Description:
This 95-nucleotide RNA from Leucobacter komagatae belongs to the Rfam family "TPP riboswitch aptamer (THI element)". The base pairs follow the family's consensus structure, which is taken from published work. NCBI's taxonomy places the organism under Bacteria, Bacillati, Actinomycetota, Micrococcales, Leucobacter. A search with the family's covariance model found it, with a score of 72 bits.

[Rfam]
RNA sequence: AGCAACGACACGGGGUGCCGCAUCCAGCGGCUGAGAUCAGACCCGUCGAACCUGCUCUCGUUAGUACGAGCGAAGGGAUGUCCCUAUGCACGCAC
Numbered sequence: 001a002g003c004a005a006c007g008a009c010a011c012g013g014g015g016u017g018c019c020g021c022a023u024c025c026a027g028c029g030g031c032u033g034a035g036a037u038c039a040g041a042c043c044c045g046u047c048g049a050a051c052c053u054g055c056u057c058u059c060g061u062u063a064g065u066a067c068g069a070g071c072g073a074a075g076g077g078a079u080g081u082c083c084c085u086a087u088g089c090a091c092g093c094a095c
Stems, first nucleotide, its partner, number of pairs: 007082004011045004016039001017031005051076003057070004